The record is a 144-nucleotide sequence from Schwartzia succinivorans, which matches "c-di-AMP riboswitch aptamer (ydaO/yuaA leader)" in Rfam.
[Rfam]
RNA sequence: UCCCAUAUAAAGCCGAGUCCAGCUCAGGAGCGGGGGAACCAAGUUUUUGGGGUGAAUGUUGUUUUUUCUUUGUUGAAUUGACAUGGGUGGUCUUCUCUACCCUAACCCGGCAGCUAACCUCGUAGGCGAAUAGAGAGAGGAGUG
Numbered sequence: 001u002c003c004c005a006u007a008u009a010a011a012g013c014c015g016a017g018u019c020c021a022g023c024u025c026a027g028g029a030g031c032g033g034g035g036g037a038a039c040c041a042a043g044u045u046u047u048u049g050g051g052g053u054g055a056a057u058g059u060u061g062u063u064u065u066u067u068c069u070u071u072g073u074u075g076a077a078u079u080g081a082c083a084u085g086g087g088u089g090g091u092c093u094u095c096u097c098u099a100c101c102c103u104a105a106c107c108c109g110g111c112a113g114c115u116a117a118c119c120u121c122g123u124a125g126g127c128g129a130a131u132a133g134a135g136a137g138a139g140g141a142g143u144g
Stems, first nucleotide, its partner, number of pairs: 012127003018029003030123006040049002050108003058082004085102004
A search with the family's covariance model found it, with a score of 97 bits. Rfam's curators write: This family represents a conserved RNA structure found upstream of the ydaO and yuaA genes in Bacillus subtilis and related genes in other bacteria. The ydaO/yuaA element is thought to act as a genetic 'off' switch for the ydaO and yuaA genes in its native state. Taxonomically the source falls in Schwartzia succinivorans (Bacteria, Bacillati, Bacillota, Selenomonadaceae). The pairing is the family consensus, mapped onto this sequence.